[Rfam]
RNA sequence: GCCGGUCCUCGGUAGUGGCCCCCGGGACGUAUCGGUUUCCCCGGAGACGGGAACGCCACCGCCCGAGGGCUUCGAUCGAGAACCGGU
Numbered sequence: 001g002c003c004g005g006u007c008c009u010c011g012g013u014a015g016u017g018g019c020c021c022c023c024g025g026g027a028c029g030u031a032u033c034g035g036u037u038u039c040c041c042c043g044g045a046g047a048c049g050g051g052a053a054c055g056c057c058a059c060c061g062c063c064c065g066a067g068g069g070c071u072u073c074g075a076u077c078g079a080g081a082a083c084c085g086g087u
Stems, first nucleotide, its partner, number of pairs: 001087006009079005017071005023065004028061002

The record is an 87-nucleotide RNA sequence from Blastococcus saxobsidens, which matches "Actino-pnp RNA" in Rfam. Pairs were carried over by alignment from the consensus structure, which is taken from published work. A search with the family's covariance model found it, with a score of 51 bits.